[Rfam]
RNA sequence: AUUGGCACGAUGAGGAACUUAUUGCAUAAAUAUUGAGUUCAGUUGAUCUUUGAAAUUCUAAAAUAUAUUAAAGUCCUUUUCAUUCUGAGUGCCCU
Numbered sequence: 001a002u003u004g005g006c007a008c009g010a011u012g013a014g015g016a017a018c019u020u021a022u023u024g025c026a027u028a029a030a031u032a033u034u035g036a037g038u039u040c041a042g043u044u045g046a047u048c049u050u051u052g053a054a055a056u057u058c059u060a061a062a063a064u065a066u067a068u069u070a071a072a073g074u075c076c077u078u079u080u081c082a083u084u085c086u087g088a089g090u091g092c093c094c095u
Stems, first nucleotide, its partner, number of pairs: 004093005010083007
Dot-bracket structure: ...(((((.(((((((............................................................))))))).....)))))..
RNA: Small nucleolar RNA Z162